[Rfam]
RNA sequence: ACAAAGGGUUUCUGCCUUGCAUGGUACAGGGGCGGUUGCGUGGUCGCCUCUGCGGAACUGACAUCAAGAGAUUUCUGAAGUACGAUUUUUUGUAGCGGCGGGCACCAGCAAUCACUUGUUCCAGUGCCUCG
Numbered sequence: 001a002c003a004a005a006g007g008g009u010u011u012c013u014g015c016c017u018u019g020c021a022u023g024g025u026a027c028a029g030g031g032g033c034g035g036u037u038g039c040g041u042g043g044u045c046g047c048c049u050c051u052g053c054g055g056a057a058c059u060g061a062c063a064u065c066a067a068g069a070g071a072u073u074u075c076u077g078a079a080g081u082a083c084g085a086u087u088u089u090u091u092g093u094a095g096c097g098g099c100g101g102g103c104a105c106c107a108g109c110a111a112u113c114a115c116u117u118g119u120u121c122c123a124g125u126g127c128c129u130c131g
Base pairs, nucleotide, nucleotide: 008081009080010079011078012077013026014025015024016023027052028051029050030049031048032047033046034045035044036043037042054075055074056073057072059070100129101128102127103126104125105124108121110120111119112118
RNA: U11 spliceosomal RNA
Organism: Semnornis frantzii